Shown here is a 75-nucleotide RNA sequence from Staphylococcus aureus, a member of the family "icaR 5' UTR".
RNA sequence: GAAAUAUUUGUAAUUGCAACUUAAUUUUCCUGUAACAUAGUGUGAUUAAUUUUCAGUAGGGGGUUAUAAAAAUUG
Numbered sequence: 001g002a003a004a005u006a007u008u009u010g011u012a013a014u015u016g017c018a019a020c021u022u023a024a025u026u027u028u029c030c031u032g033u034a035a036c037a038u039a040g041u042g043u044g045a046u047u048a049a050u051u052u053u054c055a056g057u058a059g060g061g062g063g064u065u066a067u068a069a070a071a072a073u074u075g
Stems, first nucleotide, its partner, number of pairs: 007070009017060001019057003022048005030040004